Overview
The family of this 140-nucleotide RNA is "Small Cajal body specific RNA 21". By type it is a small Cajal body RNA. The base pairs follow the family's consensus structure, which was predicted with RNAalifold. Rfam describes the family as follows. scaRNAs are a specific class of small nuclear RNAs which localise to the Cajal bodies and guide the modification of RNA polymerase II transcribed spliceosomal RNAs U1, U2, U4, U5 and U12. ACA68 (SCARNA21) is a member of the H/ACA class of snoRNAs that guide the sites of modification of uridines to pseudouridines. This snoRNA was identified by computational screening and its expression in mouse experimentally verified by Northern blot and primer extension analysis.
RNA sequence: UGGCUCGGUUUCCUGGGGGGUGGGCUCAGUCUACACCACCUCCCCUCAGCCAAGCCUACAGUAGAGGGCCCAGGCAUCCUCCCGUAUGGGAGAGGCGUUUGAGUAAGGAGCCUCACCUGGGGUGUCCUAGCCUCACAUUU
Numbered sequence: 001u002g003g004c005u006c007g008g009u010u011u012c013c014u015g016g017g018g019g020g021u022g023g024g025c026u027c028a029g030u031c032u033a034c035a036c037c038a039c040c041u042c043c044c045c046u047c048a049g050c051c052a053a054g055c056c057u058a059c060a061g062u063a064g065a066g067g068g069c070c071c072a073g074g075c076a077u078c079c080u081c082c083c084g085u086a087u088g089g090g091a092g093a094g095g096c097g098u099u100u101g102a103g104u105a106a107g108g109a110g111c112c113u114c115a116c117c118u119g120g121g122g123u124g125u126c127c128u129a130g131c132c133u134c135a136c137a138u139u140u
Stems, first nucleotide, its partner, number of pairs: 002056004007051001015044009066134003070130001072128003078121003088113003